Alphaproteobacteria transfer-messenger RNA: a 352-nucleotide RNA sequence from Thalassovita taeanensis. Rfam classes the family as a non-coding RNA gene. Bacterial tmRNA, also known as 10Sa RNA or SsrA, is named for its dual tRNA and mRNA-like properties. Its role is to liberate the mRNA from a stalled ribosome.

RNA sequence: GCCCUUCUAACUUUUCCGCUGCCGCCCUAUAUCUGUUCUGUCUCUUCGGGGACUAUGGACAUAAAUGCGCUCGUCAUAAGCGGAUCGGACCCGGGGGCGGUACCCGGCGACUCCACCAAAUCCCGCUCAUUUGGCGGCAAUGGGGUCGAAACAGGAUCGACGAACGUCUAAAGGGGUUAGCUUUGUCUCGGUGAGGUACCACCGUUAUCGGUCCGAAAAGUACAAUUGCAAAUGACAAUCGUGCUCCGGUAGCAAUGGCCGCGUAAGCGGCAGAAGCAACCGAAAACUUAAGUCCUUGCGCCUAGCAGUGUAAGGCGGGGUUCGCAGGUACCUGGCAACAGAAACCUGCAUU
Numbered sequence: 001g002c003c004c005u006u007c008u009a010a011c012u013u014u015u016c017c018g019c020u021g022c023c024g025c026c027c028u029a030u031a032u033c034u035g036u037u038c039u040g041u042c043u044c045u046u047c048g049g050g051g052a053c054u055a056u057g058g059a060c061a062u063a064a065a066u067g068c069g070c071u072c073g074u075c076a077u078a079a080g081c082g083g084a085u086c087g088g089a090c091c092c093g094g095g096g097g098c099g100g101u102a103c104c105c106g107g108c109g110a111c112u113c114c115a116c117c118a119a120a121u122c123c124c125g126c127u128c129a130u131u132u133g134g135c136g137g138c139a140a141u142g143g144g145g146u147c148g149a150a151a152c153a154g155g156a157u158c159g160a161c162g163a164a165c166g167u168c169u170a171a172a173g174g175g176g177u178u179a180g181c182u183u184u185g186u187c188u189c190g191g192u193g194a195g196g197u198a199c200c201a202c203c204g205u206u207a208u209c210g211g212u213c214c215g216a217a218a219a220g221u222a223c224a225a226u227u228g229c230a231a232a233u234g235a236c237a238a239u240c241g242u243g244c245u246c247c248g249g250u251a252g253c254a255a256u257g258g259c260c261g262c263g264u265a266a267g268c269g270g271c272a273g274a275a276g277c278a279a280c281c282g283a284a285a286a287c288u289u290a291a292g293u294c295c296u297u298g299c300g301c302c303u304a305g306c307a308g309u310g311u312a313a314g315g316c317g318g319g320g321u322u323c324g325c326a327g328g329u330a331c332c333u334g335g336c337a338a339c340a341g342a343a344a345c346c347u348g349c350a351u352u
Stems, first nucleotide, its partner, number of pairs: 040053005057188005067181002069177004081166002085163003091107005108148007189204004195214002198212003318333004324349006
It scores 303 bits against the family's covariance model.